The record is a 68-nucleotide RNA from Mycolicibacterium agri, which matches "ASdes TB sRNA" in Rfam.
A search with the family's covariance model found it, with a score of 79 bits.
Pairs were carried over by alignment from the consensus structure, which is taken from published work.
On this family, see Arnvig and Young, Mol Microbiol 2009: "Identification of small RNAs in Mycobacterium tuberculosis".
NCBI's taxonomy places the organism under Bacteria, Actinomycetes, Mycobacteriaceae, Mycobacterium, Mycobacterium (subgen. Mycolicibacterium).
It is annotated as a small RNA.
Rfam 15.1 lists 1,192 matches to the family in 825 species.
RNA sequence: AGCUGGACGGGGUCCACCGCACGGGUUACGACGAGAUAGUCGCGCAGCGCGAUGCCGUGCCGGUUCUC
Number, nucleotide and partner (000 for none) at each position: 001a000002g000003c000004u063005g000006g061007a000008c059009g058010g000011g000012g029013u028014c000015c000016a026017c025018c024019g000020c000021a000022c000023g000024g018025g017026u016027u000028a013029c012030g000031a000032c000033g000034a000035g056036a000037u054038a053039g000040u052041c051042g050043c049044g048045c000046a000047g000048c044049g043050c042051g041052a040053u038054g037055c000056c035057g000058u009059g008060c000061c006062g000063g004064u000065u000066c000067u000068c000